[Rfam]
RNA sequence: CGUGCACACAAACCCAGCGGUCCCAUCGUAUCAGUGGUGCGACUCAGUCUGGUGUGCAAACAGCAAACGGAUCCUUGUCGCCUUUCUGUGUCUGCAGUGACGGAGGAAGUGAAUCCAAGGGUCCACAGAU
Numbered sequence: 001c002g003u004g005c006a007c008a009c010a011a012a013c014c015c016a017g018c019g020g021u022c023c024c025a026u027c028g029u030a031u032c033a034g035u036g037g038u039g040c041g042a043c044u045c046a047g048u049c050u051g052g053u054g055u056g057c058a059a060a061c062a063g064c065a066a067a068c069g070g071a072u073c074c075u076u077g078u079c080g081c082c083u084u085u086c087u088g089u090g091u092c093u094g095c096a097g098u099g100a101c102g103g104a105g106g107a108a109g110u111g112a113a114u115c116c117a118a119g120g121g122u123c124c125a126c127a128g129a130u
Stems, first nucleotide, its partner, number of pairs: 003058007019044004024039005070123002073121004082109006089102004

This 130-nucleotide RNA from Cottoperca gobio belongs to the Rfam family "Small nucleolar RNA SNORA68". It is annotated as an H/ACA-box small nucleolar RNA. A reference for the family is Ganot et al. (1997), "The family of box ACA small nucleolar RNAs is defined by an evolutionarily conserved secondary structure and ubiquitous sequence elements essential for RNA accumulation", Genes Dev. U68 is a member of the H/ACA class of small nucleolar RNAs (snoRNAs) which act as guides in the the modification of uridines to pseudouridines. The base pairs follow the family's consensus structure, which was predicted with PFOLD. Lineage of the source: Eukaryota > Euteleostomi > Actinopterygii > Neoteleostei > Cottoperca.